[Rfam]
RNA: Small nucleolar RNA SNORA71
RNA sequence: ACCUGCAUUCGAAAGUGACUGCGGCUCCGCCCGUGGCCGGGUCAUCGAUAGUGCAGGGAGAGAAGGUCGAGAGCUGUCCCGUGUUUGGGGGGCCCUGCCAUGCCUUCCAGACCCUGUCGCUGUCGGACA
Numbered sequence: 001a002c003c004u005g006c007a008u009u010c011g012a013a014a015g016u017g018a019c020u021g022c023g024g025c026u027c028c029g030c031c032c033g034u035g036g037c038c039g040g041g042u043c044a045u046c047g048a049u050a051g052u053g054c055a056g057g058g059a060g061a062g063a064a065g066g067u068c069g070a071g072a073g074c075u076g077u078c079c080c081g082u083g084u085u086u087g088g089g090g091g092g093c094c095c096u097g098c099c100a101u102g103c104c105u106u107c108c109a110g111a112c113c114c115u116g117u118c119g120c121u122g123u124c125g126g127a128c129a
Base pairs, nucleotide, nucleotide: 002057003056004055005054006053007052008051009050015045016044017043018042019041020040023038024037025036026035068125069124070123072121073120074119083112084111085110086109087108088106089105090104091103